Description: A member of the RNA family "MIR851 microRNA precursor family" from Arabidopsis thaliana, 108 nucleotides long. Pairs were carried over by alignment from the consensus structure, which was predicted with RNAalifold. Gene Ontology terms of the family: miRNA-mediated post-transcriptional gene silencing and RISC complex. The source organism's lineage runs through Eukaryota, Tracheophyta, rosids, Camelineae and Arabidopsis. Rfam's curators put it in the seed alignment.
[Rfam]
RNA sequence: AGGGACUGUCGUCUCGGUUCGCGAUCCACAAGUAAUCUUUUGUGGAGAUUAUGAAAACAAUCAUCACGAGAGGCUACGUGUGGGUGGCAAACAAAGACGACAAUCCCU
Number, nucleotide and partner (000 for none) at each position: 001a108002g107003g106004g105005a104006c000007u102008g101009u100010c099011g098012u097013c096014u095015c000016g000017g092018u091019u090020c000021g088022c087023g000024a085025u084026c083027c082028a081029c080030a079031a000032g077033u076034a075035a000036u073037c072038u071039u070040u069041u068042g067043u066044g065045g000046a000047g000048a000049u000050u000051a000052u000053g000054a000055a000056a000057a000058c000059a000060a000061u000062c000063a000064u000065c044066a043067c042068g041069a040070g039071a038072g037073g036074c000075u034076a033077c032078g000079u030080g029081u028082g027083g026084g025085u024086g000087g022088c021089a000090a019091a018092c017093a000094a000095a014096g013097a012098c011099g010100a009101c008102a007103a000104u005105c004106c003107c002108u001